This 97-nucleotide RNA from Gossypium stocksii belongs to the Rfam family "Plastid-rps12 3UTR RNA".
A reference for the family is Richter et al. (2023), "Retrograde signaling in plants: A critical review focusing on the GUN pathway and beyond", Plant Commun.
The source organism's lineage runs through Eukaryota, Viridiplantae, Streptophyta, malvids and Gossypium.
About the family: Plastid rpl20 is a non-coding RNA (ncRNA) recognised in plastids.
The match comes from Rfam's covariance-model search (78 bits).
RNA sequence: GAUGUCCAUUGGUGCAAAUCCAAUCUUAAUAUUUAAGAUGAGGAAAAAAAUCUCCAUUGGUAGUAAAUGCUUAUCCAAUAAGCAGGGAAAAUACUAU
Numbered sequence: 001g002a003u004g005u006c007c008a009u010u011g012g013u014g015c016a017a018a019u020c021c022a023a024u025c026u027u028a029a030u031a032u033u034u035a036a037g038a039u040g041a042g043g044a045a046a047a048a049a050a051u052c053u054c055c056a057u058u059g060g061u062a063g064u065a066a067a068u069g070c071u072u073a074u075c076c077a078a079u080a081a082g083c084a085g086g087g088a089a090a091a092u093a094c095u096a097u
Stems, first nucleotide, its partner, number of pairs: 009023004052087003057077001059075005